[Rfam]
RNA sequence: GUGAAUGAUAGAGGCGCAGUGUAUUAAGAGUAAUUAUCCCGAGCGGGUCAGGCUAGGACGGAUAAGGAAAGGAAUCGCUGCCGAAGCAAAGGCCCAGGACAAAGGGUCUUAGCUGGUCUUCCAUUGAAAAAAUGUAAGACUGUCACCGGGACUCCGGUGGAGUGCUAUCUCGUGA
Numbered sequence: 001g002u003g004a005a006u007g008a009u010a011g012a013g014g015c016g017c018a019g020u021g022u023a024u025u026a027a028g029a030g031u032a033a034u035u036a037u038c039c040c041g042a043g044c045g046g047g048u049c050a051g052g053c054u055a056g057g058a059c060g061g062a063u064a065a066g067g068a069a070a071g072g073a074a075u076c077g078c079u080g081c082c083g084a085a086g087c088a089a090a091g092g093c094c095c096a097g098g099a100c101a102a103a104g105g106g107u108c109u110u111a112g113c114u115g116g117u118c119u120u121c122c123a124u125u126g127a128a129a130a131a132a133u134g135u136a137a138g139a140c141u142g143u144c145a146c147c148g149g150g151a152c153u154c155c156g157g158u159g160g161a162g163u164g165c166u167a168u169c170u171c172g173u174g175a
Stems, first nucleotide, its partner, number of pairs: 007169005016081006023075003034065006085114003089110007115141006122134004143160007
This 175-nucleotide sequence from Desulfitobacterium hafniense belongs to the Rfam family "Lysine riboswitch aptamer". The base pairs follow the family's consensus structure, which is taken from published work. The source organism's lineage runs through Bacteria, Bacillota, Eubacteriales, Desulfitobacterium and Desulfitobacterium hafniense.